[Rfam]
RNA: Ma3 gene ribosomal frameshift signal
Organism: Myotis myotis
RNA sequence: GGGAAACGAGGCGGGGGCUGGGGGCACGAGCCACCCCGAGUCCUAGGCAGUACAGGCUCA
Dot-bracket structure: .............((((((.((((...[[[[[.)))).))))))..........]]]]].